[Rfam]
RNA sequence: CGGUGUUGGGUAGAGUCAUAUGGAGUGAAAGAUGGGAAUUUCAUGUUGGAUUCUAUUCAUUCAAUUUUCCCUCUUUCAUUCCAUAUGUCAUCUAGCUAGCAUAUU
Numbered sequence: 001c002g003g004u005g006u007u008g009g010g011u012a013g014a015g016u017c018a019u020a021u022g023g024a025g026u027g028a029a030a031g032a033u034g035g036g037a038a039u040u041u042c043a044u045g046u047u048g049g050a051u052u053c054u055a056u057u058c059a060u061u062c063a064a065u066u067u068u069c070c071c072u073c074u075u076u077c078a079u080u081c082c083a084u085a086u087g088u089c090a091u092c093u094a095g096c097u098a099g100c101a102u103a104u105u
Stems, first nucleotide, its partner, number of pairs: 005100005011094004015089001017087016034071005048058004

About this RNA
This 105-nucleotide sequence from Medicago truncatula belongs to the Rfam family "MIR1507 microRNA precursor family". Gene Ontology terms of the family: miRNA-mediated post-transcriptional gene silencing and RISC complex.